RNA sequence: AAAGCAGGCUGCAAUUGCAGCACUUCCUGCUGUGGGAGUGCUGCCAUUUUCUUGCUGAGAGCAACUCUGUUAACACUGUCUGUGGUUUCACCCACACUGUGGUGAAAGCAUUUAUUCUUAAGAUGGACAAGU
Numbered sequence: 001a002a003a004g005c006a007g008g009c010u011g012c013a014a015u016u017g018c019a020g021c022a023c024u025u026c027c028u029g030c031u032g033u034g035g036g037a038g039u040g041c042u043g044c045c046a047u048u049u050u051c052u053u054g055c056u057g058a059g060a061g062c063a064a065c066u067c068u069g070u071u072a073a074c075a076c077u078g079u080c081u082g083u084g085g086u087u088u089c090a091c092c093c094a095c096a097c098u099g100u101g102g103u104g105a106a107a108g109c110a111u112u113u114a115u116u117c118u119u120a121a122g123a124u125g126g127a128c129a130a131g132u
Base pairs, nucleotide, nucleotide: 003056004055005054006053007052008051018043019042020041021040022039023038024037025036026035067126068125069124070123071122075118083110084109086107087106088105089104090103091102092101

Shown here is a 132-nucleotide sequence from Zosterops borbonicus, a member of the family "Small nucleolar RNA SNORA69". The base pairs follow the family's consensus structure, which was predicted with PFOLD. Rfam links the family to the GO terms nucleolus and RNA processing. About the family: U69 is a member of the H/ACA class of small nucleolar RNAs (snoRNAs) which act as guides in the the modification of uridines to pseudouridines.